[Rfam]
RNA: Betaproteobacteria-1 RNA
RNA sequence: CGCCGCGGUCGACGCCUAUGCGCCAGGACUGCGGGGAUAAGCAGGUACUGGGGGUAAGCGUUGAGAAACCUGCAACGGCGGCGAAGCAAGCACCGUGACGUGAAAGGCUUGCGGGU
Numbered sequence: 001c002g003c004c005g006c007g008g009u010c011g012a013c014g015c016c017u018a019u020g021c022g023c024c025a026g027g028a029c030u031g032c033g034g035g036g037a038u039a040a041g042c043a044g045g046u047a048c049u050g051g052g053g054g055u056a057a058g059c060g061u062u063g064a065g066a067a068a069c070c071u072g073c074a075a076c077g078g079c080g081g082c083g084a085a086g087c088a089a090g091c092a093c094c095g096u097g098a099c100g101u102g103a104a105a106g107g108c109u110u111g112c113g114g115g116u
Stems, first nucleotide, its partner, number of pairs: 001036001003034008023051004041073006058101004075096004086112006